RNA: Fluoride riboswitch aptamer (crcB RNA motif)
Organism: Fulvimonas soli
RNA sequence: UGAUCGAUGGGAGAUGGCAUUCCUCCCCGAACCGCCGCAAGGCUGAUGAUGCCUGGUCCAAG
Numbered sequence: 001u002g003a004u005c006g007a008u009g010g011g012a013g014a015u016g017g018c019a020u021u022c023c024u025c026c027c028c029g030a031a032c033c034g035c036c037g038c039a040a041g042g043c044u045g046a047u048g049a050u051g052c053c054u055g056g057u058c059c060a061a062g
Stems, first nucleotide, its partner, number of pairs: 010026004016053006034043003
Dot-bracket structure: .........[[[[..((((((.]]]].......(((....)))....)))))).........